[Rfam]
RNA sequence: GAUAAAACAAUGAGAAGAUGAGUAACCAGCAUACCCUGCAAAGCGAGUUCCGGUUGGUGCAAUGGAAUCAGCGGUAUUUGGUGAAGAUGGUCUUUGAGCAAAAUCAUGGUAAGCAAUCGCAAGCCGGGAUUGGGUGCUGCCCACUAUUGCAGCUGUGUGACCGUUAUGGGCACACUAAGCGACCUCGCGUGGCGGGGUAAUUAAGGUGGUACCGCGAAGAUCAAUCGUCCUUAGA
Numbered sequence: 001g002a003u004a005a006a007a008c009a010a011u012g013a014g015a016a017g018a019u020g021a022g023u024a025a026c027c028a029g030c031a032u033a034c035c036c037u038g039c040a041a042a043g044c045g046a047g048u049u050c051c052g053g054u055u056g057g058u059g060c061a062a063u064g065g066a067a068u069c070a071g072c073g074g075u076a077u078u079u080g081g082u083g084a085a086g087a088u089g090g091u092c093u094u095u096g097a098g099c100a101a102a103a104u105c106a107u108g109g110u111a112a113g114c115a116a117u118c119g120c121a122a123g124c125c126g127g128g129a130u131u132g133g134g135u136g137c138u139g140c141c142c143a144c145u146a147u148u149g150c151a152g153c154u155g156u157g158u159g160a161c162c163g164u165u166a167u168g169g170g171c172a173c174a175c176u177a178a179g180c181g182a183c184c185u186c187g188c189g190u191g192g193c194g195g196g197g198u199a200a201u202u203a204a205g206g207u208g209g210u211a212c213c214g215c216g217a218a219g220a221u222c223a224a225u226c227g228u229c230c231u232u233a234g235a
Base pairs, nucleotide, nucleotide: 008098015094016093017092018091025082026081027080028079029078036071037070038069047068048067049066050065051064052063102148103147104146107143108142150163152161182198183197184196185195186194187193188192203232204231205230206229214228215227216226217225